[Rfam]
RNA sequence: CAUCUAUGUAGGAGGGACAUAGCAGAAGGGUUCACAUCGUCACCCCUGUCAAGUAAUACUUGCAAAUUCUGCU
Numbered sequence: 001c002a003u004c005u006a007u008g009u010a011g012g013a014g015g016g017a018c019a020u021a022g023c024a025g026a027a028g029g030g031u032u033c034a035c036a037u038c039g040u041c042a043c044c045c046c047u048g049u050c051a052a053g054u055a056a057u058a059c060u061u062g063c064a065a066a067u068u069c070u071g072c073u
Base pairs, nucleotide, nucleotide: 014045015044016043021073022072023071024070025069026068027067028040030038050062051061052060053059054058
RNA: Mammalian CPEB3 ribozyme